[Rfam]
A member of the RNA family "RNase MRP" from Daphoenositta chrysoptera, 267 nucleotides long. By type it is a ribozyme. The family has 66 seed sequences and 3,510 matches in Rfam 15.1. Its family is annotated with rRNA processing, ribonuclease MRP complex and ribonuclease MRP activity in the Gene Ontology.
RNA sequence: GGAUGUUCUGAAGACCUGCUCGCUAGGCUACGCACGGAGGACGCCAGUUCCUCACGGGCCCCGCGCCCGCCUAGGGGAAAGUCCCCGGACCCGGCGGCAGAGAGUGCCGGGCGCUGCCGCGCCCCGGCCCGCCGCCGCCUCACGCCACCCCCGCCGAGACGCCCGCGGGCCGAGCGGGUGAGCGCGGGGCGGGCUCUCGUCACGGCCACAGACACGCAGGUAGCGCGCCAGGCGCGCCAACAGAACGGGGCUCACUCUCAGGCCAUC
Numbered sequence: 001g002g003a004u005g006u007u008c009u010g011a012a013g014a015c016c017u018g019c020u021c022g023c024u025a026g027g028c029u030a031c032g033c034a035c036g037g038a039g040g041a042c043g044c045c046a047g048u049u050c051c052u053c054a055c056g057g058g059c060c061c062c063g064c065g066c067c068c069g070c071c072u073a074g075g076g077g078a079a080a081g082u083c084c085c086c087g088g089a090c091c092c093g094g095c096g097g098c099a100g101a102g103a104g105u106g107c108c109g110g111g112c113g114c115u116g117c118c119g120c121g122c123c124c125c126g127g128c129c130c131g132c133c134g135c136c137g138c139c140u141c142a143c144g145c146c147a148c149c150c151c152c153g154c155c156g157a158g159a160c161g162c163c164c165g166c167g168g169g170c171c172g173a174g175c176g177g178g179u180g181a182g183c184g185c186g187g188g189g190c191g192g193g194c195u196c197u198c199g200u201c202a203c204g205g206c207c208a209c210a211g212a213c214a215c216g217c218a219g220g221u222a223g224c225g226c227g228c229c230a231g232g233c234g235c236g237c238c239a240a241c242a243g244a245a246c247g248g249g250g251c252u253c254a255c256u257c258u259c260a261g262g263c264c265a266u267c
Stems, first nucleotide, its partner, number of pairs: 002267004007262005014221006023074006037053005080252002083250004096108004109124006126194001128192001132189002135187004139182004151177004161170003223237006